About this RNA
A member of the RNA family "c-di-GMP-I riboswitch aptamer" from Neobacillus massiliamazoniensis, 89 nucleotides long. It scores 80 bits against the family's covariance model.

RNA sequence: UAGAGUUAAGGGCAAACCUGCCAAAAGGCAGGGACGCAAAGCUACAGGGUCUAAAGCGCUUAAAGUGCUAUGAUAGCCUAGCCGCCAAA
Numbered sequence: 001u002a003g004a005g006u007u008a009a010g011g012g013c014a015a016a017c018c019u020g021c022c023a024a025a026a027g028g029c030a031g032g033g034a035c036g037c038a039a040a041g042c043u044a045c046a047g048g049g050u051c052u053a054a055a056g057c058g059c060u061u062a063a064a065g066u067g068c069u070a071u072g073a074u075a076g077c078c079u080a081g082c083c084g085c086c087a088a089a
Base pairs, nucleotide, nucleotide: 012037013036017032018031019030020029021028022027041082042081043080046079047078048077049074050073051072056068057067058066059065